[Rfam]
RNA sequence: CAGCAUCCUCUGAUAGACCAUGAGCACUUUUCCUGUUGCUCCCUGGUUUGCACUAAGAUGCAAAAAUAACUUUCCUUGCGCUUUCUGCUUGCCUGACUGUGGCAGCCCUGAGGGGGGAUAUCUGU
Numbered sequence: 001c002a003g004c005a006u007c008c009u010c011u012g013a014u015a016g017a018c019c020a021u022g023a024g025c026a027c028u029u030u031u032c033c034u035g036u037u038g039c040u041c042c043c044u045g046g047u048u049u050g051c052a053c054u055a056a057g058a059u060g061c062a063a064a065a066a067u068a069a070c071u072u073u074c075c076u077u078g079c080g081c082u083u084u085c086u087g088c089u090u091g092c093c094u095g096a097c098u099g100u101g102g103c104a105g106c107c108c109u110g111a112g113g114g115g116g117g118a119u120a121u122c123u124g125u
Stems, first nucleotide, its partner, number of pairs: 003061005011052002014050006022041005028035001073117003081114001084111002087108001089105005
RNA: Small nucleolar RNA SNORA31